A member of the RNA family "glmS glucosamine-6-phosphate activated ribozyme aptamer" from Enterococcus sp. PFB1-1, 149 nucleotides long.
Rfam links the family to the GO terms catalytic activity and regulation of gene expression.
It is annotated as a riboswitch.
[Rfam]
RNA sequence: CCAAUCGGAAUAGCGCCUGCCCGAUGAUUCGUCGGGGACGAGGAAAGAGUUUAUCGAAAUAUUCGGCGGAUGGCUCUAGGGACUGCACUCUACAGAUAGAUCUAAAAACUUUUCGAAAGAAAAAAACAAAAAAUCUAUCCCGCAGCAGA
Numbered sequence: 001c002c003a004a005u006c007g008g009a010a011u012a013g014c015g016c017c018u019g020c021c022c023g024a025u026g027a028u029u030c031g032u033c034g035g036g037g038a039c040g041a042g043g044a045a046a047g048a049g050u051u052u053a054u055c056g057a058a059a060u061a062u063u064c065g066g067c068g069g070a071u072g073g074c075u076c077u078a079g080g081g082a083c084u085g086c087a088c089u090c091u092a093c094a095g096a097u098a099g100a101u102c103u104a105a106a107a108a109c110u111u112u113u114c115g116a117a118a119g120a121a122a123a124a125a126a127c128a129a130a131a132a133a134u135c136u137a138u139c140c141c142g143c144a145g146c147a148g149a
Stems, first nucleotide, its partner, number of pairs: 020036007046077005054066004078091004095139007110123005

The family's consensus secondary structure is taken from published work.